[Rfam]
RNA sequence: GGGGACCUCGAGAGGGGGCCCUAUACCUUGGCCGCAAGGCCCACACAUAGCGGGGCGCAAAGCCCUGCAAAGCUAACGGAAGACAGAAA
Number, nucleotide and partner (000 for none) at each position: 001g022002g021003g020004g019005a000006c018007c017008u016009c000010g000011a000012g000013a000014g000015g000016g008017g007018g006019c004020c003021c002022u001023a000024u000025a000026c000027c000028u000029u000030g000031g000032c000033c000034g068035c067036a066037a000038g064039g063040c062041c000042c000043a000044c000045a000046c000047a000048u000049a000050g000051c000052g000053g000054g000055g000056c000057g000058c000059a000060a000061a000062g040063c039064c038065c000066u036067g035068c034069a000070a000071a000072g000073c000074u000075a000076a000077c000078g000079g000080a000081a000082g000083a000084c000085a000086g000087a000088a000089a000
Notes: This 89-nucleotide RNA sequence from Tropicimonas isoalkanivorans belongs to the Rfam family "L2-Alphaproteobacteria ribosomal protein leader". For this family Rfam cites "Discovery of 20 novel ribosomal leader candidates in bacteria and archaea" (Eckert and Weinberg, BMC Microbiol, 2020). The family's consensus secondary structure is taken from published work. By type it is a cis-regulatory leader. NCBI's taxonomy places the organism under Bacteria, Pseudomonadati, Pseudomonadota, Alphaproteobacteria, Tropicimonas.